[Rfam]
RNA sequence: AUUGGAAGUUUGAGGCCAUAGAAGAAGCGCUCAUGGUGUACCUUGUCAGACUCCAGGGAAUCUGUAAAUACUGCU
Numbered sequence: 001a002u003u004g005g006a007a008g009u010u011u012g013a014g015g016c017c018a019u020a021g022a023a024g025a026a027g028c029g030c031u032c033a034u035g036g037u038g039u040a041c042c043u044u045g046u047c048a049g050a051c052u053c054c055a056g057g058g059a060a061u062c063u064g065u066a067a068a069u070a071c072u073g074c075u
Base pairs, nucleotide, nucleotide: 013043014042015041020075021074023072024071026069027039028038029037047064048063049062050061052059053058

A member of the RNA family "Mammalian CPEB3 ribozyme" from Alligator sinensis, 75 nucleotides long. The organism belongs to Alligator, within Eukaryota. A search with the family's covariance model found it, with a score of 43 bits. The base pairs follow the family's consensus structure, which is taken from published work. Rfam links the family to the GO term RNA nuclease activity.